This 78-nucleotide RNA from Phrynocephalus forsythii belongs to the Rfam family "Small nucleolar RNA SNORD72". The family's RNA type in Rfam is C/D-box small nucleolar RNA. From the family's description: snoRNA HBII-240 belongs to the CD family of snoRNAs. It is the human orthologue of the mouse MBII-240 and is predicted to guide 2'O-ribose methylation of the large 28S rRNA at residue U4590. Taxonomically the source falls in Phrynocephalus (Eukaryota, Teleostomi, Bifurcata, Unidentata). Pairs were carried over by alignment from the consensus structure. Gene Ontology terms of the family: nucleolus and RNA processing. On this family, see Huttenhofer et al., EMBO J 2001: "RNomics: an experimental approach that identifies 201 candidates for novel, small, non-messenger RNAs in mouse".

[Rfam]
RNA sequence: AGCUUAUCAAUGAUGUUCCUUUAAAAAGUCUGAACAUCUGAGUAUAUCGCUGAUUUUAUUUUGUUACUGAGAUAAGCU
Numbered sequence: 001a002g003c004u005u006a007u008c009a010a011u012g013a014u015g016u017u018c019c020u021u022u023a024a025a026a027a028g029u030c031u032g033a034a035c036a037u038c039u040g041a042g043u044a045u046a047u048c049g050c051u052g053a054u055u056u057u058a059u060u061u062u063g064u065u066a067c068u069g070a071g072a073u074a075a076g077c078u
Stems, first nucleotide, its partner, number of pairs: 002077007